Small nucleolar RNA Z103: a 96-nucleotide RNA sequence from Trifolium pratense. A reference for the family is Chen et al. (2003), "The high diversity of snoRNAs in plants: identification and comparative study of 120 snoRNA genes from Oryza sativa", Nucleic Acids Res. It scores 83 bits against the family's covariance model.

RNA sequence: AUGGAUGUGAUUUAUUUCCCCAGAUGAUCGAAGCUGAACAUUCUGUGCGACUUUUUGUUUCUCUUUUGAGAUAUCAAGCCAAAUAAUCUGAUCCAU
Numbered sequence: 001a002u003g004g005a006u007g008u009g010a011u012u013u014a015u016u017u018c019c020c021c022a023g024a025u026g027a028u029c030g031a032a033g034c035u036g037a038a039c040a041u042u043c044u045g046u047g048c049g050a051c052u053u054u055u056u057g058u059u060u061c062u063c064u065u066u067u068g069a070g071a072u073a074u075c076a077a078g079c080c081a082a083a084u085a086a087u088c089u090g091a092u093c094c095a096u
Base pairs, nucleotide, nucleotide: 001096002095003094004093005092